[Rfam]
RNA: T-box leader
RNA sequence: CGAAACGCGUUGAAAGGCUUCAGUAGAGCUGCGGGACGACGAUGUCAGAGAGCCGGUGGGGGGUGCGAACCGGUACGCGCCGCAAUUCGAAUUACCGCCUCGAGCUGAUCGGACGAACCCGAAUAAUCUCCUGUUCGCGCUGGGAGCGUUCGCCAGUAGUCCGCAUCCGGAUGAUCUCCGUUAUGAAAUGAAGUGAGAGCCGUAUUCUCUUUGUCCGCGCGUCUUGGCGGGCACGGGCGGUUCUAACGAGGGUGGUACCGCGAGCAAAUCCUUCUCGUCCCUUGA
Number, nucleotide and partner (000 for none) at each position: 001c000002g000003a000004a000005a000006c000007g105008c104009g000010u000011u000012g000013a000014a000015a100016g099017g098018c097019u000020u000021c000022a000023g000024u000025a000026g088027a087028g086029c000030u084031g083032c000033g000034g000035g000036a000037c000038g000039a000040c077041g076042a000043u075044g000045u000046c000047a000048g000049a000050g000051a000052g074053c073054c072055g071056g070057u069058g000059g000060g000061g000062g000063g000064u000065g000066c000067g000068a000069a057070c056071c055072g054073g053074u052075a043076c041077g040078c000079g000080c000081c000082g000083c031084a030085a000086u028087u027088c026089g000090a000091a000092u000093u000094a000095c000096c000097g018098c017099c016100u015101c000102g000103a000104g008105c007106u000107g000108a166109u165110c163111g162112g161113a160114c159115g000116a000117a000118c000119c000120c000121g000122a000123a000124u000125a000126a000127u000128c000129u000130c000131c000132u000133g000134u000135u000136c000137g000138c000139g000140c000141u000142g000143g000144g000145a000146g000147c000148g000149u000150u000151c000152g000153c000154c000155a000156g000157u000158a000159g114160u113161c112162c111163g110164c000165a109166u108167c000168c180169g179170g178171a000172u000173g000174a000175u000176c000177u000178c170179c169180g168181u000182u000183a000184u000185g000186a000187a000188a000189u000190g000191a000192a000193g000194u000195g000196a244197g243198a242199g241200c240201c239202g238203u000204a000205u000206u000207c000208u000209c000210u000211u000212u000213g000214u000215c000216c000217g000218c000219g000220c000221g000222u000223c000224u000225u000226g000227g000228c000229g000230g000231g000232c000233a000234c000235g000236g000237g000238c202239g201240g200241u199242u198243c197244u196245a000246a000247c000248g000249a282250g281251g280252g279253u000254g000255g000256u000257a000258c000259c000260g278261c277262g276263a275264g274265c000266a000267a000268a000269u000270c000271c000272u000273u000274c264275u263276c262277g261278u260279c252280c251281c250282u249283u000284g000285a000